[Rfam]
RNA sequence: UGCGUCUUUCUUCGGGGCGGAGCUCGACCGCCAACAUCGGAAGUAGUCCGGUUCAUCGACGAGAACAAGAACGACGUCGUUGAAGGUCGCCCGCUCGGAGUCGAGCCCAUCUGCAAGCUGUUGCAGGUGGCUCCG
Numbered sequence: 001u002g003c004g005u006c007u008u009u010c011u012u013c014g015g016g017g018c019g020g021a022g023c024u025c026g027a028c029c030g031c032c033a034a035c036a037u038c039g040g041a042a043g044u045a046g047u048c049c050g051g052u053u054c055a056u057c058g059a060c061g062a063g064a065a066c067a068a069g070a071a072c073g074a075c076g077u078c079g080u081u082g083a084a085g086g087u088c089g090c091c092c093g094c095u096c097g098g099a100g101u102c103g104a105g106c107c108c109a110u111c112u113g114c115a116a117g118c119u120g121u122u123g124c125a126g127g128u129g130g131c132u133c134c135g
Stems, first nucleotide, its partner, number of pairs: 016032005096135005107130002110127007
RNA: ALIL pseudoknot
Organism: Microbacterium sp. CH12i